[Rfam]
The family of this 81-nucleotide sequence from Salvelinus namaycush is "mir-130 microRNA precursor family". The source organism's lineage runs through Eukaryota, Deuterostomia, Chordata, Salmoniformes and Salvelinus. For this family Rfam cites "Embryonic stem cell-specific MicroRNAs" (Houbaviy et al., Dev Cell, 2003). Its family is annotated with miRNA-mediated post-transcriptional gene silencing and RISC complex in the Gene Ontology. Rfam 15.1 lists 2,580 matches to the family in 658 species. A search with the family's covariance model found it, with a score of 49 bits.
RNA sequence: AAUGGCACCCCGUUCCCUAUAUAGUGCACUACUUUUGACCUGUCAAAAGUAGUGCACUAUAUAGGGAACAGGGUGCCAUUU
Number, nucleotide and partner (000 for none) at each position: 001a081002a080003u000004g000005g076006c075007a074008c073009c072010c071011c000012g069013u068014u067015c066016c065017c064018u063019a062020u000021a000022u059023a058024g057025u056026g055027c054028a053029c052030u051031a000032c000033u000034u000035u000036u000037g000038a000039c000040c000041u000042g000043u000044c000045a000046a000047a000048a000049g000050u000051a030052g029053u028054g027055c026056a025057c024058u023059a022060u000061a000062u019063a018064g017065g016066g015067a014068a013069c012070a000071g010072g009073g008074u007075g006076c005077c000078a000079u000080u002081u001